RNA sequence: CUUUGCUCAAGGCAAACCCUGAGAAAUCAGGCGACGCAAAGCUAAAGGGACUAUCUACAAGGUUGUAGGCUAGUCAGCCAGUUGCCAAA
Numbered sequence: 001c002u003u004u005g006c007u008c009a010a011g012g013c014a015a016a017c018c019c020u021g022a023g024a025a026a027u028c029a030g031g032c033g034a035c036g037c038a039a040a041g042c043u044a045a046a047g048g049g050a051c052u053a054u055c056u057a058c059a060a061g062g063u064u065g066u067a068g069g070c071u072a073g074u075c076a077g078c079c080a081g082u083u084g085c086c087a088a089a
Stems, first nucleotide, its partner, number of pairs: 012037002018031005040083004047079002049075003056069001059066001
RNA: c-di-GMP-I riboswitch aptamer